[Rfam]
RNA: Eukaryotic large subunit ribosomal RNA, nucleotides 2370 to 2961
RNA sequence: GAAGAAAGAAGACUCUGUUGAGCUUGACUCUAGUUUGACAUUGUAAAAAGAUAUAAGAAGUGUAGAAUAGAUGAAAGCUUCAGUAUCAGUGAAAUAUCACUAUCUUUAUCAUUUUUUUACUUAUUCAAUGAAGCAGAACUGAGCUUUACUGCUUAACUUCUGAUGUUAAGAUUCUUCACAGGCUGAUUCAGGUUGAAAACAUUGUUAGAUAAGAAGUUUAACUGAGACAGCACAUCUGUUAAAUUAUAAUACAGAUGUUCUAAGAGAGACUUAUAGAGAAUAGAAAUCUUCAGUAGAAUAAAAGAGUAAAAGUCUUCUUAAUUUUGAUUUUCAGUGUGAAUACAAAUCAUGAAAGUGUGAUUUAUUAAUUCUUUAGUCUCUCAAAAUUUGAGGCUAGAGGUCUUAGAAAAGUUAUCACAGAGAUAACUGACUUAUAACAGUUAAGUGUUUAUAGUGAUAUUGCUUUUUGAUUCUUUAAUGUCAGCUCUUUCUAUCAUACUGAAGCAGAAUUCAGUAAGUAUUGAAUUAUUCACUCACUAAUAGAGAACAUGAGCUGAGUUUAGACUGUUGUGAGACAGAUUAGUUUUAUUCU
Numbered sequence: 001g002a003a004g005a006a007a008g009a010a011g012a013c014u015c016u017g018u019u020g021a022g023c024u025u026g027a028c029u030c031u032a033g034u035u036u037g038a039c040a041u042u043g044u045a046a047a048a049a050g051a052u053a054u055a056a057g058a059a060g061u062g063u064a065g066a067a068u069a070g071a072u073g074a075a076a077g078c079u080u081c082a083g084u085a086u087c088a089g090u091g092a093a094a095u096a097u098c099a100c101u102a103u104c105u106u107u108a109u110c111a112u113u114u115u116u117u118u119a120c121u122u123a124u125u126c127a128a129u130g131a132a133g134c135a136g137a138a139c140u141g142a143g144c145u146u147u148a149c150u151g152c153u154u155a156a157c158u159u160c161u162g163a164u165g166u167u168a169a170g171a172u173u174c175u176u177c178a179c180a181g182g183c184u185g186a187u188u189c190a191g192g193u194u195g196a197a198a199a200c201a202u203u204g205u206u207a208g209a210u211a212a213g214a215a216g217u218u219u220a221a222c223u224g225a226g227a228c229a230g231c232a233c234a235u236c237u238g239u240u241a242a243a244u245u246a247u248a249a250u251a252c253a254g255a256u257g258u259u260c261u262a263a264g265a266g267a268g269a270c271u272u273a274u275a276g277a278g279a280a281u282a283g284a285a286a287u288c289u290u291c292a293g294u295a296g297a298a299u300a301a302a303a304g305a306g307u308a309a310a311a312g313u314c315u316u317c318u319u320a321a322u323u324u325u326g327a328u329u330u331u332c333a334g335u336g337u338g339a340a341u342a343c344a345a346a347u348c349a350u351g352a353a354a355g356u357g358u359g360a361u362u363u364a365u366u367a368a369u370u371c372u373u374u375a376g377u378c379u380c381u382c383a384a385a386a387u388u389u390g391a392g393g394c395u396a397g398a399g400g401u402c403u404u405a406g407a408a409a410a411g412u413u414a415u416c417a418c419a420g421a422g423a424u425a426a427c428u429g430a431c432u433u434a435u436a437a438c439a440g441u442u443a444a445g446u447g448u449u450u451a452u453a454g455u456g457a458u459a460u461u462g463c464u465u466u467u468u469g470a471u472u473c474u475u476u477a478a479u480g481u482c483a484g485c486u487c488u489u490u491c492u493a494u495c496a497u498a499c500u501g502a503a504g505c506a507g508a509a510u511u512c513a514g515u516a517a518g519u520a521u522u523g524a525a526u527u528a529u530u531c532a533c534u535c536a537c538u539a540a541u542a543g544a545g546a547a548c549a550u551g552a553g554c555u556g557a558g559u560u561u562a563g564a565c566u567g568u569u570g571u572g573a574g575a576c577a578g579a580u581u582a583g584u585u586u587u588a589u590u591c592u
Stems, first nucleotide, its partner, number of pairs: 002592001004590001006587002014421004019417002021413005027217003034209007043120010053109005059103001070101001072099003077084002124197005136188002142153003170184001172182002222230002234256006259360002266316005271297002274292001276290004298307002322346003327341004348357003371399006379393004430471001432469001434468001436464001438462004445455002483555004488546005496519001498515006522536003526532001563581002566578001567576003
Dot-bracket structure: .(.(.((......((((.(((((((.(((....(((((((..(((((((((((((((.(..........(.(((..((....))............))).).).))))).))))))))))...(((((.......((....(((......)))................(.((.......)).)..))....))))).....))))))).....)))....((.....))...((((((...........))))))..((.....(((((((.(.((((.......)))).)...))((......))....))))).....(((..((((.......))))..))).(((....))).))..........((((((..((((.......)))))))))).........)))))..))))))........(.(.(.(.((((...((.......))...)))).)...)).)...........((((.(((((...(.((((((......))))))...)..(((.(.....).))).....))))).....)))).......((.((((....))).).))....))..).)